The family of this 608-nucleotide RNA sequence from Molossus molossus is "c-sis internal ribosome entry site (IRES)". Rfam's curators write: This family represents the c-sis 5'-UTR which contains three modules that can individually mediate internal ribosome entry. However, the full length sequence is required for maximal IRES activity. The literature on the family includes a 1999 paper in Mol Cell Biol by Sella et al., "Differentiation-induced internal translation of c-sis mRNA: analysis of the cis elements and their differentiation-linked binding to the hnRNP C protein". The match comes from Rfam's covariance-model search (527 bits).

RNA sequence: CAGAGCAGCCGCAGCUCGCAGUCCAUAGAGGACGCCCAGAGUGGCGAGCAGGCGGGCCGACUGACCGACGGACUCGCGCCACGUCCACCUGUCUGCUGCGUCCAGUCCACAGCUCAGCGGGCACGCCGCGCUCGGAGCAGCCGUGCCCGCCGCCCGGGCCCCAAGCCAGGGCGCACACGCUCCGGCCCCCCCACCCGGCCCGGGCGGGAGUUUGCACCUCUCGCUGCCUGGGUACUUGGGCCGCCGCUGCAAAGCCAACUUUGGAAAAAGUUUUCGGGGGAAGACUUUGGCUUUGAGGGGUCCAGCUCUACGCUUUCCGACUUCGGGGGCCUUCUCAGAAAAUGUUGCAAAAAAGCUAAGCCAGCGGGCAGAGGAGAACGCCUUUAGCCGGCAGCGCGAGAAGACGAACCAUCGACUGCCGCGUUCUUUUUCCUCUUGGAGGUUGGAGUCCCCUGGGCGCCCCCACACGGCUAGACACCUCGGCUGGUUCCCGACGCAGCCCCCAGGCCGUGGAUGCUCGCUCUGGCUCGGGAUCCGCCCAGGUAGUGGCCUCGGACCCUGGUCUCACGCCCAGGCCCUCCCCAGCCCCCCAACGACGGAUCCGGGGC
Dot-bracket structure: ..(.(((((.((.(((((.(((....(((((.(((((.(.((...(.((.(((((((...(.(.(.(((((...((.....)).....))))).)).).)))).)))....(..(.((((((((((((....)))......))))))))).)..)..)).)...))).)))))..((.(((((.((((.((.....))...)))).))))).))..)))))............)))))))).)).)))))....)..(((((....)))))......(((.((.(((.(((.....((.(....((((((((....((......((((((................((......))...(((.((..(.((.(.....)..)).).)).)))...(((....(..((((((((((((((((.(((((.(((((....)))))..)))((((...))))......)).)))).)).....)))).)))))).)..))).)))))).)).)))))).)).).))..(((..(((.((((...((((....)))))))))))..)))....))).)))..)).)))....((((............)))).